[Rfam]
RNA sequence: AGCUGCGCAGUGGGCACAAAGCGAACUAUUCUUUCGCCUUUUACUAAAGAAUACCGUGUGCUCGCUGCAAAUAGCAGCAUACUCUAAUUUUUUGAGGGGAUUUCCAGCAUUUGGAGAAC
Numbered sequence: 001a002g003c004u005g006c007g008c009a010g011u012g013g014g015c016a017c018a019a020a021g022c023g024a025a026c027u028a029u030u031c032u033u034u035c036g037c038c039u040u041u042u043a044c045u046a047a048a049g050a051a052u053a054c055c056g057u058g059u060g061c062u063c064g065c066u067g068c069a070a071a072u073a074g075c076a077g078c079a080u081a082c083u084c085u086a087a088u089u090u091u092u093u094g095a096g097g098g099g100a101u102u103u104c105c106a107g108c109a110u111u112u113g114g115a116g117a118a119c
Base pairs, nucleotide, nucleotide: 003077004076005075006074008067009066010065011064012063013062014061015060016059017058018057027053028052029051030050031049032048033047034046101117102116103115104114105113
Dot-bracket structure: ..((((.(((((((((((........((((((((...........))))))))...)))))))))))......)))).......................(((((.......)))))..

Rfam assigns this 119-nucleotide RNA to the family "U5 spliceosomal RNA". About the family: U5 RNA is a component of both types of known spliceosome. Rfam links the family to the GO terms spliceosomal tri-snRNP complex assembly and U5 snRNP.